[Rfam]
RNA sequence: GUGUCAUGGUCAUUGUUGACCGUUCAUACGACCCCUGCAAUUGCAUUGCAGCUUAAGCGGGAGUCGUAUAACGGAUAACAGAGACCCUUGACAU
Number, nucleotide and partner (000 for none) at each position: 001g094002u093003g092004u091005c090006a089007u000008g086009g085010u084011c083012a000013u081014u080015g079016u078017u077018g076019a000020c074021c073022g072023u071024u070025c000026a069027u068028a067029c066030g065031a064032c063033c000034c061035c060036u059037g058038c057039a000040a000041u000042u000043g052044c000045a000046u000047u000048g000049c000050a000051g000052c043053u000054u000055a000056a000057g038058c037059g036060g035061g034062a000063g032064u031065c030066g029067u028068a027069u026070a024071a023072c022073g021074g020075a000076u018077a017078a016079c015080a014081g013082a000083g011084a010085c009086c008087c000088u000089u006090g005091a004092c003093a002094u001
A member of the RNA family "MIR2587 microRNA precursor family" from Medicago truncatula, 94 nucleotides long.
Gene Ontology terms of the family: miRNA-mediated post-transcriptional gene silencing and RISC complex.
Lineage of the source: Eukaryota > Euphyllophyta > Fabales > Fabaceae > Medicago.